This 103-nucleotide sequence from Musa balbisiana belongs to the Rfam family "Plastid-psbA-1 3UTR RNA". A search with the family's covariance model found it, with a score of 60 bits. Rfam's curators write: Plastid psbA-1 is a non-coding RNA (ncRNA) present in plastids. It was identified in inverted repeat sequences in the 3 prime untranslate region (3UTR) of photosystem II quinone-binding protein (psbA). For this family Rfam cites "Retrograde signaling in plants: A critical review focusing on the GUN pathway and beyond" (Richter et al., Plant Commun, 2023). Its Rfam clan is "Plastid-psbA 3UTR RNA clan".

RNA sequence: UUGCAAUUGAAAAAUAAUUUUUUUUGUGAAAAAACAAAGAAGUAUCAACAAAGUAGCAAUACCCCAUGUCUUGCUAAAGCAAGACAUGGGGUAUUGCUACUUU
Numbered sequence: 001u002u003g004c005a006a007u008u009g010a011a012a013a014a015u016a017a018u019u020u021u022u023u024u025u026g027u028g029a030a031a032a033a034a035c036a037a038a039g040a041a042g043u044a045u046c047a048a049c050a051a052a053g054u055a056g057c058a059a060u061a062c063c064c065c066a067u068g069u070c071u072u073g074c075u076a077a078a079g080c081a082a083g084a085c086a087u088g089g090g091g092u093a094u095u096g097c098u099a100c101u102u103u
Stems, first nucleotide, its partner, number of pairs: 050103013064089003068085005